[Rfam]
RNA: tRNA
RNA sequence: GCCCGUUUAGCUCAGUGGUAGAGCGCGCCACUUGUAUCACGUGAUACUAUAUGGUGAGGUCAGUCGUUCAAUCCGGCUAAUGGGCA
Numbered sequence: 001g002c003c004c005g006u007u008u009a010g011c012u013c014a015g016u017g018g019u020a021g022a023g024c025g026c027g028c029c030a031c032u033u034g035u036a037u038c039a040c041g042u043g044a045u046a047c048u049a050u051a052u053g054g055u056g057a058g059g060u061c062a063g064u065c066g067u068u069c070a071a072u073c074c075g076g077c078u079a080a081u082g083g084g085c086a
Stems, first nucleotide, its partner, number of pairs: 001085007010024004026056005062078005